Shown here is a 120-nucleotide sequence from Clostridium botulinum, a member of the family "Ribosomal protein L20 leader". NCBI's taxonomy places the organism under Bacteria, Bacillota, Clostridia, Clostridium botulinum, Clostridium botulinum A. By type it is a cis-regulatory leader. Rfam describes the family as follows. This family is a putative r-protein leader autoregulatory structure found in B. subtilis and other low-GC Gram-positive bacteria.

RNA sequence: UUAUGUAAGUAGAAACAGGCCGUUUCUCACCUUACAGCAUGGCUAGUAAGGUUAGAGUAUAUAAAUUUAAUUUGUAUUAUUGUUUAUGAAGACGGCUUAUGCCGUCUUUUAUUUAUUAUA
Numbered sequence: 001u002u003a004u005g006u007a008a009g010u011a012g013a014a015a016c017a018g019g020c021c022g023u024u025u026c027u028c029a030c031c032u033u034a035c036a037g038c039a040u041g042g043c044u045a046g047u048a049a050g051g052u053u054a055g056a057g058u059a060u061a062u063a064a065a066u067u068u069a070a071u072u073u074g075u076a077u078u079a080u081u082g083u084u085u086a087u088g089a090a091g092a093c094g095g096c097u098u099a100u101g102c103c104g105u106c107u108u109u110u111a112u113u114u115a116u117u118a119u120a
Stems, first nucleotide, its partner, number of pairs: 011027006029052003034047002037043002090107007